[Rfam]
Description: Shown here is a 132-nucleotide sequence from Apteryx australis, a member of the family "Small nucleolar RNA SNORA69". Taxonomically the source falls in Apteryx (Eukaryota, Theropoda, Palaeognathae, Apterygidae). Pairs were carried over by alignment from the consensus structure, which was predicted with PFOLD. Rfam's curators write: U69 is a member of the H/ACA class of small nucleolar RNAs (snoRNAs) which act as guides in the the modification of uridines to pseudouridines. The match comes from Rfam's covariance-model search (94 bits).

RNA sequence: AAAGCAGGCUGCAAUUACAGUGCUUCAUUCUGUGGGAGUACUGUCAUUUUCCUGCUGAGAGCAAUUUGGUUAAUGUCAUCUUUGGUUUUACCUGCAUGUUGGUGAAACCAUUUGUCCUUAACAUGUACAAGU
Numbered sequence: 001a002a003a004g005c006a007g008g009c010u011g012c013a014a015u016u017a018c019a020g021u022g023c024u025u026c027a028u029u030c031u032g033u034g035g036g037a038g039u040a041c042u043g044u045c046a047u048u049u050u051c052c053u054g055c056u057g058a059g060a061g062c063a064a065u066u067u068g069g070u071u072a073a074u075g076u077c078a079u080c081u082u083u084g085g086u087u088u089u090a091c092c093u094g095c096a097u098g099u100u101g102g103u104g105a106a107a108c109c110a111u112u113u114g115u116c117c118u119u120a121a122c123a124u125g126u127a128c129a130a131g132u
Stems, first nucleotide, its partner, number of pairs: 003056006018043009069122005075116001083110010094099001